[Rfam]
RNA sequence: GGCGUAUUUUGCGAUGGCGGAGCUCGACCGCCGGUCGAAGUGAUGGUCGGGUUCAUCGACGACCAUCGAGGGGAACACGGGGUCGAGCCGAUCUGCGACGUGCUGCAGAUCGCCCCG
Numbered sequence: 001g002g003c004g005u006a007u008u009u010u011g012c013g014a015u016g017g018c019g020g021a022g023c024u025c026g027a028c029c030g031c032c033g034g035u036c037g038a039a040g041u042g043a044u045g046g047u048c049g050g051g052u053u054c055a056u057c058g059a060c061g062a063c064c065a066u067c068g069a070g071g072g073g074a075a076c077a078c079g080g081g082g083u084c085g086a087g088c089c090g091a092u093c094u095g096c097g098a099c100g101u102g103c104u105g106c107a108g109a110u111c112g113c114c115c116c117g
Stems, first nucleotide, its partner, number of pairs: 016032005078117005089112002092109006
The record is a 117-nucleotide RNA from Paracoccus alkenifer, which matches "ALIL pseudoknot" in Rfam. The match comes from Rfam's covariance-model search (111 bits).